[Rfam]
Nucleotides: 075
Base pairs, nucleotide, nucleotide: 008035009034010033011032012031013030014029015028016027020071021070022069023068024067037061041053043052045050
Number, partner (000 for none) and nucleotide at each position: 001000g002000a003000g004000u005000g006000c007000g008035g009034g010033g011032u012031u013030c014029u015028a016027g017000u018000g019000c020071a021070g022069c023068u024067c025000g026000a027016c028015u029014a030013g031012a032011a033010c034009c035008c036000u037061g038000c039000a040000a041053u042000g043052g044000u045050a046000c047000u048000g049000a050045u051000c052043c053041a054000g055000a056000c057000c058000a059000u060000g061037u062000u063000a064000g065000u066000a067024g068023a069022g070021c071020u072000u073000u074000u075000g

Description
A member of the RNA family "Coronavirus frameshifting stimulation element" from Alphacoronavirus suis, 75 nucleotides long. By type it is a frameshift element. The literature on the family includes a 2005 paper in Virology by Baranov et al., "Programmed ribosomal frameshifting in decoding the SARS-CoV genome". Its family is annotated with viral translational frameshifting in the Gene Ontology. Rfam's curators write: This family represents a conserved stem-loop found in Coronaviruses which can promote ribosomal frameshifting. This family interacts with a downstream region to form a pseudoknot structure, the region varies according to the virus but pseudoknot formation is known to stimulate frameshifting. In the classical situation a sequence 32nt downstream of the stem is complementary to part of the loop. In other Coronaviruses however, there is another stem loop structure around 150nt downstream that can interact with this family to form kissing stem loops and stimulate frameshifting. The source organism's lineage runs through Viruses, Orthornavirae, Pisoniviricetes, Alphacoronavirus suis and Alphacoronavirus 1.